The record is a 75-nucleotide sequence from Ophiophagus hannah, which matches "mir-129 microRNA precursor family" in Rfam. The sequence is in the family's curated seed alignment. Taxonomically the source falls in Ophiophagus (Eukaryota, Teleostomi, Bifurcata, Elapidae). Rfam links the family to the GO terms RISC complex, synapse and miRNA-mediated post-transcriptional gene silencing.
[Rfam]
RNA sequence: UCGGAUCUUUUUGCGGUCUGGGCUUGCUGUUCCUCCAAUAAGUAGCCAGGAAGCCCUUACCCCAAAAAGUAUUUG
Numbered sequence: 001u002c003g004g005a006u007c008u009u010u011u012u013g014c015g016g017u018c019u020g021g022g023c024u025u026g027c028u029g030u031u032c033c034u035c036c037a038a039u040a041a042g043u044a045g046c047c048a049g050g051a052a053g054c055c056c057u058u059a060c061c062c063c064a065a066a067a068a069g070u071a072u073u074u075g
Base pairs, nucleotide, nucleotide: 007069008068009067010066011065012064013063015061016060017059020056021055022054023053025051027049028048